[Rfam]
RNA sequence: AAUCUGUCAUGGAUAACCUAGUGGAAGGCUCACCGCCAUGCCGAUUACCCUGCUUCGGUCGCAAGGCCAGCAGGAAAGGUGCCUGGUACGAAUCCCGGGGUUGGCAUUUUCACUCGUGCGAGUAAUCCACGACGCUGGAGGCCACUAAGCAAUGGAAAUGACCCUUGAGGGAAGCAAUUCUGCAGAGACAUUUCCACCCCGGGAUGGCGUCGCCAGAUGACACCUUCCUGUUACAGGGAAGUUGGCAAUUUGGUGUGACAACUACUAUU
Numbered sequence: 001a002a003u004c005u006g007u008c009a010u011g012g013a014u015a016a017c018c019u020a021g022u023g024g025a026a027g028g029c030u031c032a033c034c035g036c037c038a039u040g041c042c043g044a045u046u047a048c049c050c051u052g053c054u055u056c057g058g059u060c061g062c063a064a065g066g067c068c069a070g071c072a073g074g075a076a077a078g079g080u081g082c083c084u085g086g087u088a089c090g091a092a093u094c095c096c097g098g099g100g101u102u103g104g105c106a107u108u109u110u111c112a113c114u115c116g117u118g119c120g121a122g123u124a125a126u127c128c129a130c131g132a133c134g135c136u137g138g139a140g141g142c143c144a145c146u147a148a149g150c151a152a153u154g155g156a157a158a159u160g161a162c163c164c165u166u167g168a169g170g171g172a173a174g175c176a177a178u179u180c181u182g183c184a185g186a187g188a189c190a191u192u193u194c195c196a197c198c199c200c201g202g203g204a205u206g207g208c209g210u211c212g213c214c215a216g217a218u219g220a221c222a223c224c225u226u227c228c229u230g231u232u233a234c235a236g237g238g239a240a241g242u243u244g245g246c247a248a249u250u251u252g253g254u255g256u257g258a259c260a261a262c263u264a265c266u267a268u269u
Stems, first nucleotide, its partner, number of pairs: 002014003019267006029257001031255005038249001039247008048238003052067004057062001071230001073228004078224004083216005088210003092205009102144001103142001105140001107139003111134001114132005120127002145149001153196007164187003171180003

A member of the RNA family "Fungal signal recognition particle RNA" from Penicillium egyptiacum, 269 nucleotides long. It is annotated as a non-coding RNA gene. Clan: SRP clan. NCBI's taxonomy places the organism under Eukaryota, Fungi, Ascomycota, leotiomyceta, Penicillium.